Shown here is an 80-nucleotide sequence from Crocodylus porosus, a member of the family "Mammalian CPEB3 ribozyme". The family's consensus secondary structure is taken from published work.
RNA sequence: AGAGGACCCACGUUCCAAGGCCGUAGCAGAAAUGUUCACGGCGCAGCCUGUCAGAUUCCAAUGAACCUGCUAAUUCUGCU
Numbered sequence: 001a002g003a004g005g006a007c008c009c010a011c012g013u014u015c016c017a018a019g020g021c022c023g024u025a026g027c028a029g030a031a032a033u034g035u036u037c038a039c040g041g042c043g044c045a046g047c048c049u050g051u052c053a054g055a056u057u058c059c060a061a062u063g064a065a066c067c068u069g070c071u072a073a074u075u076c077u078g079c080u
Base pairs, nucleotide, nucleotide: 019048020047021046025080026079027078028077029076030075031074033043034042052069053068054067056065057064058063